Shown here is a 116-nucleotide RNA sequence from Streptosporangium subroseum, a member of the family "SAM (S-adenosyl methionine) riboswitch aptamer". From the family's description: SAM-IV is a mRNA element that regulates gene expression via direct sensing of S-adenosylmethionine (SAM or AdoMet). SAM-IV riboswitches share conserved nucleotide positions with the previously described SAM-I riboswitches sequence analysis and molecular recognition experiments suggest that SAM-I and SAM-IV riboswitches share similar ligand binding sites, but have different scaffolds. The source organism's lineage runs through Bacteria, Bacillati, Actinomycetes, Streptosporangiales and Streptosporangium. For this family Rfam cites "The aptamer core of SAM-IV riboswitches mimics the ligand-binding site of SAM-I riboswitches" (Weinberg et al., RNA, 2008). Pairs were carried over by alignment from the consensus structure, which is taken from published work.

[Rfam]
RNA sequence: GGUCACGAAGCCGAACGCGCCCCUGGACGAUCAUCGGCUGGCAACCUCGCAAACCGCGCAAGGUGCCCUCCAGGGAAGACCGGGCCUCCACAGCCCAAUGGAGGUAAGCGCGGAUC
Number, nucleotide and partner (000 for none) at each position: 001g081002g080003u079004c078005a000006c000007g000008a000009a039010g038011c037012c036013g035014a000015a000016c000017g000018c000019g000020c000021c000022c000023c000024u000025g000026g000027a000028c000029g000030a000031u000032c000033a000034u000035c013036g012037g011038c010039u009040g067041g066042c065043a000044a000045c063046c062047u061048c000049g059050c058051a000052a000053a000054c000055c000056g000057c000058g050059c049060a000061a047062g046063g045064u000065g042066c041067c040068c000069u000070c000071c000072a000073g000074g000075g000076a000077a000078g004079a003080c002081c001082g000083g000084g105085c104086c103087u102088c101089c100090a099091c000092a000093g000094c000095c000096c000097a000098a000099u090100g089101g088102a087103g086104g085105u084106a000107a000108g000109c000110g000111c000112g000113g000114a000115u000116c000